[Rfam]
Notes: This 86-nucleotide sequence from Podarcis muralis belongs to the Rfam family "Small nucleolar RNA SNORD103/SNORD85". Rfam links the family to the GO terms nucleolus and RNA processing. On this family, see Huttenhofer et al., EMBO J 2001: "RNomics: an experimental approach that identifies 201 candidates for novel, small, non-messenger RNAs in mouse". Rfam 15.1 lists 1,349 matches to the family in 595 species.

RNA sequence: UCUGGCAGUGAUGACACUCUUGCCCUCACUGAGAACACUGUUCGGUAAUGAGAAUCUUGCUUUGUACUCAGGUGUGCUGAGCUGGA
Numbered sequence: 001u002c003u004g005g006c007a008g009u010g011a012u013g014a015c016a017c018u019c020u021u022g023c024c025c026u027c028a029c030u031g032a033g034a035a036c037a038c039u040g041u042u043c044g045g046u047a048a049u050g051a052g053a054a055u056c057u058u059g060c061u062u063u064g065u066a067c068u069c070a071g072g073u074g075u076g077c078u079g080a081g082c083u084g085g086a
Stems, first nucleotide, its partner, number of pairs: 001086006

Source information:
The pairing is the family consensus, mapped onto this sequence.